[Rfam]
RNA sequence: CGGGGUCGGGCAGGCACCCCAUCAGACGGUUCUCCGUCUAAGUUCGGU
Numbered sequence: 001c002g003g004g005g006u007c008g009g010g011c012a013g014g015c016a017c018c019c020c021a022u023c024a025g026a027c028g029g030u031u032c033u034c035c036g037u038c039u040a041a042g043u044u045c046g047g048u
Stems, first nucleotide, its partner, number of pairs: 002020005010048002013045002025038005

Rfam assigns this 48-nucleotide RNA sequence to the family "chrB-b RNA". The family's consensus secondary structure is taken from published work.